[Rfam]
Record summary: The record is a 90-nucleotide RNA from Marmota monax, which matches "GRIK4 3 prime UTR element" in Rfam. It scores 71 bits against the family's covariance model. The literature on the family includes a 2008 paper in Proc Natl Acad Sci U S A by Pickard et al., "A common variant in the 3'UTR of the GRIK4 glutamate receptor gene affects transcript abundance and protects against bipolar disorder". The organism belongs to Marmota, within Eukaryota.
RNA sequence: UAGCCCCAGCGGCCGCAGGACAAGGAGCCAGGAGAGGAGGCGGGAGGGCUGGGCAGGAGCUGCUGUCCGCCGCGAGCCUGGACUUGUACG
Numbered sequence: 001u002a003g004c005c006c007c008a009g010c011g012g013c014c015g016c017a018g019g020a021c022a023a024g025g026a027g028c029c030a031g032g033a034g035a036g037g038a039g040g041c042g043g044g045a046g047g048g049c050u051g052g053g054c055a056g057g058a059g060c061u062g063c064u065g066u067c068c069g070c071c072g073c074g075a076g077c078c079u080g081g082a083c084u085u086g087u088a089c090g
Base pairs, nucleotide, nucleotide: 003049004048005047007046011029012028013027